[Rfam]
A member of the RNA family "MIR528 microRNA precursor family" from Leersia perrieri, 87 nucleotides long. The family has 7 seed sequences and 41 matches in Rfam 15.1. A search with the family's covariance model found it, with a score of 80 bits. The base pairs follow the family's consensus structure, which was predicted with RNAalifold.

RNA sequence: AUGGAAGGGGCAUGCAGAGGAGCAGGAGAUUCAGUUGGAAGCCGGAAUCACUUCCCCUCUUUGUCUCCUGUGCUUGCCUCUUCCAUU
Numbered sequence: 001a002u003g004g005a006a007g008g009g010g011c012a013u014g015c016a017g018a019g020g021a022g023c024a025g026g027a028g029a030u031u032c033a034g035u036u037g038g039a040a041g042c043c044g045g046a047a048u049c050a051c052u053u054c055c056c057c058u059c060u061u062u063g064u065c066u067c068c069u070g071u072g073c074u075u076g077c078c079u080c081u082u083c084c085a086u087u
Stems, first nucleotide, its partner, number of pairs: 001086012014073003018069005024064001